RNA: Small nucleolar RNA SNORA48
Organism: Mus musculus
Nucleotides: 142
Stems, first nucleotide, its partner, number of pairs: 001062004006058004014052003020046003024040006082136004096130001098128001102126003107121002110118001
Number, partner (000 for none) and nucleotide at each position: 001062u002061g003060c004059c005000c006058u007057c008056u009055g010000a011000c012000a013000a014052u015051g016050g017000g018000c019000u020046a021045a022044g023000g024040g025039a026038c027037a028036c029035c030000c031000u032000g033000u034000u035029g036028g037027u038026g039025u040024u041000g042000u043000u044022c045021u046020u047000a048000u049000a050016u051015c052014a053000g054000u055009c056008a057007g058006g059004g060003g061002c062001a063000g064000a065000g066000u067000a068000g069000a070000u071000g072000g073000c074000a075000g076000u077000c078000c079000u080000c081000u082136g083135u084134u085133c086000a087000u088000u089000c090000u091000a092000g093000c094000u095000u096130g097000a098128u099000g100000c101000c102126u103125g104124g105000c106000u107121u108120g109000u110118u111000g112000g113000c114000c115000a116000a117000a118110g119000c120108u121107a122000u123000c124104u125103u126102a127000u128098g129000c130096c131000u132000a133085g134084g135083a136082c137000u138000c139000a140000u141000a142000a